[Rfam]
Source information:
Small nucleolar RNA Z13/snr52: a 104-nucleotide RNA sequence from Monosporascus sp. GIB2.
RNA sequence: CCUGUCCAUAUGACGAAACAUUUCGGAUGUAAACCUAAGUUUACUGAAAAAGCGCAAACAAACCUCGUGUUGAUAUUUCCGUUGCCUUCCUUCUGAUUAUCCAA
Number, nucleotide and partner (000 for none) at each position: 001c000002c000003u103004g102005u000006c000007c000008a000009u000010a000011u000012g000013a000014c000015g000016a000017a000018a000019c000020a000021u000022u000023u000024c081025g080026g079027a078028u000029g000030u000031a000032a000033a000034c000035c000036u000037a000038a000039g000040u000041u000042u000043a000044c000045u000046g000047a000048a000049a000050a000051a000052g000053c000054g000055c000056a000057a000058a000059c000060a000061a000062a000063c000064c000065u000066c000067g000068u000069g000070u000071u000072g000073a000074u000075a000076u000077u000078u027079c026080c025081g024082u000083u000084g000085c000086c000087u000088u000089c000090c000091u000092u000093c000094u000095g000096a000097u000098u000099a000100u000101c000102c004103a003104a000
About this RNA: By type it is a C/D-box small nucleolar RNA. The family has 42 seed sequences and 1,203 matches in Rfam 15.1. It scores 82 bits against the family's covariance model.